[Rfam]
RNA sequence: GAAAUAUAAGAACUCGUCUCUUAACUUUUAACUAAAAAAGAUAAGAACCGGUUCUUAAAUAAAAGUUUUAAGAACCUGUUUUUUAGUUAAAAGUUAAGAGACGAAUUUUUAUAUUCC
Numbered sequence: 001g002a003a004a005u006a007u008a009a010g011a012a013c014u015c016g017u018c019u020c021u022u023a024a025c026u027u028u029u030a031a032c033u034a035a036a037a038a039a040g041a042u043a044a045g046a047a048c049c050g051g052u053u054c055u056u057a058a059a060u061a062a063a064a065g066u067u068u069u070a071a072g073a074a075c076c077u078g079u080u081u082u083u084u085a086g087u088u089a090a091a092a093g094u095u096a097a098g099a100g101a102c103g104a105a106u107u108u109u110u111a112u113a114u115u116c117c
Stems, first nucleotide, its partner, number of pairs: 001117001003115010014104026
The record is a 117-nucleotide sequence from Brassica napus, which matches "MIR9563 microRNA precursor family" in Rfam. Gene Ontology terms of the family: RISC complex and miRNA-mediated post-transcriptional gene silencing. The family has 2 seed sequences and 5,832 matches in Rfam 15.1.